[Rfam]
RNA: c-di-AMP riboswitch aptamer (ydaO/yuaA leader)
Organism: Paenibacillus sabuli
RNA sequence: CAUAAAUAUCUGCCGAAUUCCCGUCAUUGGGAAACGGGGGAACCACACCGGGUGAAUUGAUUUUGGCCGUGCGGGCCGCGAACCGUCUUUUAUGAGGAAAGACUUGCGGCACGCACGCGCUAGAAAUCAUAGGGACACCUUUCGACCGAACCCUACAGCUAACCUCGCAGGCACUGGAAGGAGAAGCA
Numbered sequence: 001c002a003u004a005a006a007u008a009u010c011u012g013c014c015g016a017a018u019u020c021c022c023g024u025c026a027u028u029g030g031g032a033a034a035c036g037g038g039g040g041a042a043c044c045a046c047a048c049c050g051g052g053u054g055a056a057u058u059g060a061u062u063u064u065g066g067c068c069g070u071g072c073g074g075g076c077c078g079c080g081a082a083c084c085g086u087c088u089u090u091u092a093u094g095a096g097g098a099a100a101g102a103c104u105u106g107c108g109g110c111a112c113g114c115a116c117g118c119g120c121u122a123g124a125a126a127u128c129a130u131a132g133g134g135a136c137a138c139c140u141u142u143c144g145a146c147c148g149a150a151c152c153c154u155a156c157a158g159c160u161a162a163c164c165u166c167g168c169a170g171g172c173a174c175u176g177g178a179a180g181g182a183g184a185a186g187c188a
Stems, first nucleotide, its partner, number of pairs: 011173004018033006035167005050153003058129007132147002